[Rfam]
RNA sequence: UUUGAGUUAAGGAUAGAAACGGCAUCCUUUUUAAAGCUAUUUUACGUCAUUACGAGGAGGAACGACGAAGUAAUCUGCCCAUUAAGAGCACAAAUUACCUUGAAACUUCUACCAUUUUUUGGAAUGACUAUUGCUUUAAAAAGAUACAGUGUAUAGCCUGACCUCCG
Numbered sequence: 001u002u003u004g005a006g007u008u009a010a011g012g013a014u015a016g017a018a019a020c021g022g023c024a025u026c027c028u029u030u031u032u033a034a035a036g037c038u039a040u041u042u043u044a045c046g047u048c049a050u051u052a053c054g055a056g057g058a059g060g061a062a063c064g065a066c067g068a069a070g071u072a073a074u075c076u077g078c079c080c081a082u083u084a085a086g087a088g089c090a091c092a093a094a095u096u097a098c099c100u101u102g103a104a105a106c107u108u109c110u111a112c113c114a115u116u117u118u119u120u121g122g123a124a125u126g127a128c129u130a131u132u133g134c135u136u137u138a139a140a141a142a143g144a145u146a147c148a149g150u151g152u153a154u155a156g157c158c159u160g161a162c163c164u165c166c167g
Base pairs, nucleotide, nucleotide: 010159011158012157014155015154019150020149024145025144026143030140031139032138033137034136035135036134037133

Record summary: Rfam assigns this 167-nucleotide RNA sequence from Kordia antarctica to the family "Flavo-1 RNA". Pairs were carried over by alignment from the consensus structure, which is taken from published work. NCBI's taxonomy places the organism under Bacteria, Pseudomonadati, Flavobacteriales, Flavobacteriaceae, Kordia. Rfam classes the family as a small RNA.